The record is a 60-nucleotide RNA from Monodelphis domestica, which matches "mir-7386 microRNA precursor family" in Rfam. The base pairs follow the family's consensus structure, which was predicted with RNAalifold. Rfam links the family to the GO terms miRNA-mediated post-transcriptional gene silencing and RISC complex.
[Rfam]
RNA sequence: UACGUGGAUAAGGCAUUCUAUUUUGUGGAUUUUGCCAAAAUAAUCACCUUAUCUACGGGG
Numbered sequence: 001u002a003c004g005u006g007g008a009u010a011a012g013g014c015a016u017u018c019u020a021u022u023u024u025g026u027g028g029a030u031u032u033u034g035c036c037a038a039a040a041u042a043a044u045c046a047c048c049u050u051a052u053c054u055a056c057g058g059g060g
Stems, first nucleotide, its partner, number of pairs: 003057011019042007027035001